[Rfam]
RNA sequence: CACACACCUCGCGGGAGCUCGCGCCUUGGCGGGCUGAGAGGGCGGCUGGUGUUCCGUCGAACCCGGUGCCGCCGACCGCAUGAACCUGACCGGGUAAUGCCGGCGUAGGGAGUGAUCUUCUUGACGAC
Numbered sequence: 001c002a003c004a005c006a007c008c009u010c011g012c013g014g015g016a017g018c019u020c021g022c023g024c025c026u027u028g029g030c031g032g033g034c035u036g037a038g039a040g041g042g043c044g045g046c047u048g049g050u051g052u053u054c055c056g057u058c059g060a061a062c063c064c065g066g067u068g069c070c071g072c073c074g075a076c077c078g079c080a081u082g083a084a085c086c087u088g089a090c091c092g093g094g095u096a097a098u099g100c101c102g103g104c105g106u107a108g109g110g111a112g113u114g115a116u117c118u119u120c121u122u123g124a125c126g127a128c
Stems, first nucleotide, its partner, number of pairs: 006116001008114001010112001011079004017034005041073005085109004090103004
This 128-nucleotide sequence from Prauserella shujinwangii belongs to the Rfam family "TPP riboswitch aptamer (THI element)".
The family's consensus secondary structure is taken from published work.